Shown here is a 118-nucleotide RNA sequence, a member of the family "Betaproteobacteria-1 RNA".
Rfam classes the family as a small RNA.
The family's consensus secondary structure is taken from published work.
It is one of the family's seed sequences.
[Rfam]
Nucleotides: 118
Base pairs, nucleotide, nucleotide: 001039003037004036005035006034007033008032009031010030026053027052028051029050044074045073046072047071049069060103061102062101063100077098078097079096080095081094088114089113091111092110093109
Number, partner (000 for none) and nucleotide at each position: 001039c002000g003037c004036u005035c006034a007033a008032g009031u010030c011000g012000u013000c014000g015000g016000g017000g018000a019000c020000u021000c022000a023000c024000c025000g026053g027052c028051a029050g030010g031009g032008c033007u034006u035005g036004a037003g038000g039001g040000a041000u042000a043000c044074c045073c046072c047071g048000a049069a050029c051028u052027g053026u054000g055000g056000g057000c058000u059000a060103g061102g062101u063100c064000u065000g066000a067000g068000a069049u070000a071047c072046g073045g074044g075000g076000u077098a078097g079096g080095g081094u082000g083000g084000c085000g086000a087000a088114g089113g090000c091111a092110g093109c094081g095080c096079c097078c098077u099000u100063g101062a102061c103060c104000g105000a106000a107000c108000g109093g110092c111091u112000a113089c114088c115000g116000g117000g118000u